RNA: nhaA-I RNA
RNA sequence: GGGUCCGCCGGCGAGCACUGGCGGAGGUUAUUGCGGAUGGUCGGGCCGCCAUCC
Number, nucleotide and partner (000 for none) at each position: 001g000002g000003g000004u000005c024006c023007g022008c021009c020010g019011g018012c000013g000014a000015g000016c000017a000018c011019u010020g009021g008022c007023g006024g005025a000026g000027g000028u000029u000030a000031u000032u000033g000034c000035g054036g053037a052038u051039g050040g049041u048042c000043g000044g000045g000046c000047c000048g041049c040050c039051a038052u037053c036054c035